[Rfam]
RNA sequence: AAGGUUUACAAUGAAUUCCCGAUAGGACGGCCACAACCGGUCGGAAGCCUUGUAACCGAACAAAUUAGGGGGAAUAUUUAAUG
Numbered sequence: 001a002a003g004g005u006u007u008a009c010a011a012u013g014a015a016u017u018c019c020c021g022a023u024a025g026g027a028c029g030g031c032c033a034c035a036a037c038c039g040g041u042c043g044g045a046a047g048c049c050u051u052g053u054a055a056c057c058g059a060a061c062a063a064a065u066u067a068g069g070g071g072g073a074a075u076a077u078u079u080a081a082u083g
Base pairs, nucleotide, nucleotide: 016074017073018072019071020070024050025049026048028043029042030041031040032039056069057068

The record is an 83-nucleotide sequence from Alkalibacterium pelagium, which matches "SAM-III riboswitch aptamer (SMK box)" in Rfam. The literature on the family includes a 2007 paper in Proc Natl Acad Sci U S A by Fuchs et al., "S-adenosylmethionine directly inhibits binding of 30S ribosomal subunits to the SMK box translational riboswitch RNA". The organism belongs to Alkalibacterium, within Bacteria. The family's consensus secondary structure is taken from published work.